[Rfam]
RNA sequence: AAAAAAAUGACUCUUUUCCAUUAAUGGAAAAGAGUCAAUUCUCUUCGAUGCAACGAAGAGUGUACAAAAAGGGAGAGGAGAAACCGGAAAAAUGUCUUAUGGGGAAUGAUAAGACAUCUCCGAGU
Dot-bracket structure: ..........(((((((((......)))))))))((..(..((((((......)))))).........)..))...........((((..(...(((((..........)))))..).))))...
The family of this 125-nucleotide RNA from Halalkalibacillus sediminis is "ylbH leader". The match comes from Rfam's covariance-model search (51 bits). By type it is a cis-regulatory leader. The literature on the family includes a 2004 paper in Proc Natl Acad Sci U S A by Barrick et al., "New RNA motifs suggest an expanded scope for riboswitches in bacterial genetic control". From the family's description: This family is a putative regulatory RNA structure that is found upstream of the ylbH gene in B. subtilis and related low GC Gram-positive bacteria.